[Rfam]
RNA: mir-197 microRNA precursor family
RNA sequence: CGGGUAGAGAGGGCAGUGGGAGGUAAGAGCUCUUCACCCUUCACCACCUUCUCCACCCAGC
Numbered sequence: 001c002g003g004g005u006a007g008a009g010a011g012g013g014c015a016g017u018g019g020g021a022g023g024u025a026a027g028a029g030c031u032c033u034u035c036a037c038c039c040u041u042c043a044c045c046a047c048c049u050u051c052u053c054c055a056c057c058c059a060g061c
Base pairs, nucleotide, nucleotide: 002058003057004056005055007053008052009051010050011049012048013047016044017043018042019041020040022038023037024036025034026033027032